The family of this 61-nucleotide RNA sequence from Pristionchus pacificus is "mir-8364 microRNA precursor family". Pairs were carried over by alignment from the consensus structure, which was predicted with RNAalifold. Rfam 15.1 lists 3,320 matches to the family in 2 species. Its family is annotated with miRNA-mediated post-transcriptional gene silencing and RISC complex in the Gene Ontology.
[Rfam]
RNA sequence: UCUUCAUUUCACACACACUCUCGCCUCUCUGACCGCUGAGAGUGUGUGCGAAGUGAAGAGA
Number, nucleotide and partner (000 for none) at each position: 001u059002c058003u057004u056005c055006a054007u053008u000009u000010c050011a000012c048013a047014c046015a045016c044017a043018c000019u041020c040021u039022c038023g000024c000025c000026u000027c000028u000029c000030u000031g000032a000033c000034c000035g000036c000037u000038g022039a021040g020041a019042g000043u017044g016045u015046g014047u013048g012049c000050g010051a000052a000053g007054u006055g005056a004057a003058g002059a001060g000061a000